[Rfam]
RNA sequence: UCUGAGGUCCGGCGUUAGCCGGCAUCUCAGA
Dot-bracket structure: (((((((((((((....))))).))))))))
Rfam assigns this 31-nucleotide RNA sequence from Oesophagostomum dentatum to the family "MAT2A 3'UTR stem loop D". Rfam classes the family as a cis-regulatory element. It scores 34 bits against the family's covariance model.